[Rfam]
Shown here is a 93-nucleotide RNA from Hevea brasiliensis, a member of the family "mir-166 microRNA precursor family". A reference for the family is Reinhart et al. (2002), "MicroRNAs in plants", Genes Dev. The family's consensus secondary structure was predicted with PFOLD. Its family is annotated with miRNA-mediated post-transcriptional gene silencing and RISC complex in the Gene Ontology. About the family: This family represents the plant microRNA (miRNA) precursor mir-166.
RNA sequence: GUUGAGGGGAAUGUUGUCUGGUUCGAUGUCAUUCAUCUGAAGCUCAAAUUAACCUUAACUGAAUGAUUUCGGACCAGGCUUCAUUCCCCCAAC
Dot-bracket structure: ((((.((((((((..((((((..(((..........................................)))..))))))..))))))))))))